[Rfam]
RNA sequence: UGGCUCCCAACAUGGUCUGGAUACUGGGGACAACGUGAAGGACACGACGAAAGAAGAAGGGGUGCACACCCAAUCAAACAAUAGUUCAGAGACGUCGCAGUAGCCUGCUGUGAUCGAGCUGACAGGUAAGUUGGUCGUCAAUCAUGGGGCAAGAAUUAAGUCAGCAUCAAAAGUAUGUGAUGAAGUUAAGAGAAGUGUUACAGGCAAGAGGAGUAAAGGUUACAACUAAAGAUUUAUUUCAUUUCUUUGAUUUCAUACAGGACAUUUGUCCUU
Numbered sequence: 001u002g003g004c005u006c007c008c009a010a011c012a013u014g015g016u017c018u019g020g021a022u023a024c025u026g027g028g029g030a031c032a033a034c035g036u037g038a039a040g041g042a043c044a045c046g047a048c049g050a051a052a053g054a055a056g057a058a059g060g061g062g063u064g065c066a067c068a069c070c071c072a073a074u075c076a077a078a079c080a081a082u083a084g085u086u087c088a089g090a091g092a093c094g095u096c097g098c099a100g101u102a103g104c105c106u107g108c109u110g111u112g113a114u115c116g117a118g119c120u121g122a123c124a125g126g127u128a129a130g131u132u133g134g135u136c137g138u139c140a141a142u143c144a145u146g147g148g149g150c151a152a153g154a155a156u157u158a159a160g161u162c163a164g165c166a167u168c169a170a171a172a173g174u175a176u177g178u179g180a181u182g183a184a185g186u187u188a189a190g191a192g193a194a195g196u197g198u199u200a201c202a203g204g205c206a207a208g209a210g211g212a213g214u215a216a217a218g219g220u221u222a223c224a225a226c227u228a229a230a231g232a233u234u235u236a237u238u239u240c241a242u243u244u245c246u247u248u249g250a251u252u253u254c255a256u257a258c259a260g261g262a263c264a265u266u267u268g269u270c271c272u273u
Stems, first nucleotide, its partner, number of pairs: 006029003013023002034046003085124001086122002093116002096112005132152001134150002138147003157200003160196002208248006217235005259272005

Rfam assigns this 273-nucleotide RNA sequence from Nannospalax galili to the family "Mason-Pfizer monkey virus packaging signal". For this family Rfam cites "Secondary structure model of the Mason-Pfizer monkey virus 5' leader sequence: identification of a structural motif common to a variety of retroviruses" (Harrison et al., J Virol, 1995). Rfam describes the family as follows. This family represents a group of sequences that are related to the Mason-Pfizer monkey virus (MPMV) packaging signal. The packaging signal is located in the 5' UTR and is required for specific RNA encapsidation. It scores 131 bits against the family's covariance model. By type it is a cis-regulatory element. The base pairs follow the family's consensus structure, which was predicted with PFOLD.